[Rfam]
RNA sequence: CUGUAUUAAGGAUGGAAGUGGCAUCCUUUUGUUUAUAUUAUAUGGUUUAAAAUGCAUUAUUCUUAACAUCACAACUUCUAAUCCCUAAUAGAAGAUCUUCCUCUACAACAAAAGAUAUAACGGACAGCCUGACCCCAG
Numbered sequence: 001c002u003g004u005a006u007u008a009a010g011g012a013u014g015g016a017a018g019u020g021g022c023a024u025c026c027u028u029u030u031g032u033u034u035a036u037a038u039u040a041u042a043u044g045g046u047u048u049a050a051a052a053u054g055c056a057u058u059a060u061u062c063u064u065a066a067c068a069u070c071a072c073a074a075c076u077u078c079u080a081a082u083c084c085c086u087a088a089u090a091g092a093a094g095a096u097c098u099u100c101c102u103c104u105a106c107a108a109c110a111a112a113a114g115a116u117a118u119a120a121c122g123g124a125c126a127g128c129c130u131g132a133c134c135c136c137a138g
Stems, first nucleotide, its partner, number of pairs: 009130003013126002018121002023116003029111005